The family of this 334-nucleotide sequence from Lichenicoccus roseus is "Alphaproteobacteria transfer-messenger RNA".
RNA sequence: ACCCUUCCAUAUUACGCCGGAUGCGCCUACAUCCGGGGUGUUACGCCUUCGGGCAAGACUAUGGCGAUAAACGGUGCGUGGAAUAAUCGUUGUGGACCCGGGGGCAGUGCCCGGCGCCUCCACCAACUUCUCUCCGGGACAUGCGAGUGUCCGGGAGAGCAUGGGGGCGACACAGGCUCGACACGCGUGGUAAAGACCCACCUUUUGCCCGGCAUUGUACCGCCGUUAUCGGGCUAAAACACAGGUGCCAACGAUAACUUCGAGGCGCUCGCUGUCGCUGCAUAAGUGACAAGCGCGGUACGGGGGGGCACCGGGCAACAGAAGCCCCCCCACU
Numbered sequence: 001a002c003c004c005u006u007c008c009a010u011a012u013u014a015c016g017c018c019g020g021a022u023g024c025g026c027c028u029a030c031a032u033c034c035g036g037g038g039u040g041u042u043a044c045g046c047c048u049u050c051g052g053g054c055a056a057g058a059c060u061a062u063g064g065c066g067a068u069a070a071a072c073g074g075u076g077c078g079u080g081g082a083a084u085a086a087u088c089g090u091u092g093u094g095g096a097c098c099c100g101g102g103g104g105c106a107g108u109g110c111c112c113g114g115c116g117c118c119u120c121c122a123c124c125a126a127c128u129u130c131u132c133u134c135c136g137g138g139a140c141a142u143g144c145g146a147g148u149g150u151c152c153g154g155g156a157g158a159g160c161a162u163g164g165g166g167g168c169g170a171c172a173c174a175g176g177c178u179c180g181a182c183a184c185g186c187g188u189g190g191u192a193a194a195g196a197c198c199c200a201c202c203u204u205u206u207g208c209c210c211g212g213c214a215u216u217g218u219a220c221c222g223c224c225g226u227u228a229u230c231g232g233g234c235u236a237a238a239a240c241a242c243a244g245g246u247g248c249c250a251a252c253g254a255u256a257a258c259u260u261c262g263a264g265g266c267g268c269u270c271g272c273u274g275u276c277g278c279u280g281c282a283u284a285a286g287u288g289a290c291a292a293g294c295g296c297g298g299u300a301c302g303g304g305g306g307g308g309c310a311c312c313g314g315g316c317a318a319c320a321g322a323a324g325c326c327c328c329c330c331c332a333c334u
Stems, first nucleotide, its partner, number of pairs: 040059003063209005073202004078197002088187003092184003098114005115169007210225004215236001217234001220232002296313004304330005
Dot-bracket structure: .......................................(((..............)))...(((((.....((((.((........(((.(((...(((((.......)))))(((((((.........................................)))))))............))))))........)).))))..)))))((((.[.[..[[)))).....]].].]...........................................................[[[[....(((((.]]]]............)))))....
Annotation: Clan: tRNA clan. The match comes from Rfam's covariance-model search (236 bits).